[Rfam]
RNA sequence: AAAACCUUUAAGAAUAGUCCAGAGAGGCUGUAAAGGUGUGCCAAAUUGAUUAUAUAGUAUACACUCACUUUGUAGUGUAAACUUUUUCAUAGACACACCCUGCCUUCUGGCAGGGUGUUUUUUGCUG
Numbered sequence: 001a002a003a004a005c006c007u008u009u010a011a012g013a014a015u016a017g018u019c020c021a022g023a024g025a026g027g028c029u030g031u032a033a034a035g036g037u038g039u040g041c042c043a044a045a046u047u048g049a050u051u052a053u054a055u056a057g058u059a060u061a062c063a064c065u066c067a068c069u070u071u072g073u074a075g076u077g078u079a080a081a082c083u084u085u086u087u088c089a090u091a092g093a094c095a096c097a098c099c100c101u102g103c104c105u106u107c108u109g110g111c112a113g114g115g116u117g118u119u120u121u122u123u124g125c126u127g
Stems, first nucleotide, its partner, number of pairs: 004037006014031006054085001056083003060079006091122003095118010

Rfam assigns this 127-nucleotide sequence from Floricoccus tropicus to the family "PyrR binding site". Pairs were carried over by alignment from the consensus structure, which is taken from published work. Rfam links the family to the GO terms pyrimidine nucleobase biosynthetic process and pyrimidine nucleobase transport. The literature on the family includes a 2001 paper in Nucleic Acids Res by Bonner et al., "Molecular recognition of pyr mRNA by the Bacillus subtilis attenuation regulatory protein PyrR".